[Rfam]
RNA sequence: UGCCUAACCCCAUUGAUAACCUCACUGGAUAUGGCAUAAAACCCACCUGCACACUGAACCCGUCGUUCAGCUCCAUGCAGGUGGUCCAUACCCGAAAGGGCAUGGGAGGGUCGAAAGGCUCUC
Numbered sequence: 001u002g003c004c005u006a007a008c009c010c011c012a013u014u015g016a017u018a019a020c021c022u023c024a025c026u027g028g029a030u031a032u033g034g035c036a037u038a039a040a041a042c043c044c045a046c047c048u049g050c051a052c053a054c055u056g057a058a059c060c061c062g063u064c065g066u067u068c069a070g071c072u073c074c075a076u077g078c079a080g081g082u083g084g085u086c087c088a089u090a091c092c093c094g095a096a097a098g099g100g101c102a103u104g105g106g107a108g109g110g111u112c113g114a115a116a117g118g119c120u121c122u123c
Base pairs, nucleotide, nucleotide: 001036002035003034004033010028011027012026014024015023043084044083045082046081047080048079049078050077051076054070055069056068057067058066059065086105087104088103089102091100092099093098106123107122108121109120110119111118
RNA: LOOT RNA